Shown here is a 119-nucleotide RNA from Trifolium pratense, a member of the family "MIR1509 microRNA precursor family". It scores 97 bits against the family's covariance model. Taxonomically the source falls in Trifolium (Eukaryota, Streptophytina, Euphyllophyta, Hologalegina).

RNA sequence: UGAUCCAUUCAAUUUUUCUAAUCAAAGGAAUCACAGUUGAGGGAAUACGAAUGAGCUUCCUCUCACUUCUUUGAUCUGUCUCCACUGUGUUUCUUUGAUUAGAGAAAUUUGUUGGAUCA
Numbered sequence: 001u002g003a004u005c006c007a008u009u010c011a012a013u014u015u016u017u018c019u020a021a022u023c024a025a026a027g028g029a030a031u032c033a034c035a036g037u038u039g040a041g042g043g044a045a046u047a048c049g050a051a052u053g054a055g056c057u058u059c060c061u062c063u064c065a066c067u068u069c070u071u072u073g074a075u076c077u078g079u080c081u082c083c084a085c086u087g088u089g090u091u092u093c094u095u096u097g098a099u100u101a102g103a104g105a106a107a108u109u110u111g112u113u114g115g116a117u118c119a
Stems, first nucleotide, its partner, number of pairs: 001119007011109003016104015032089006039082003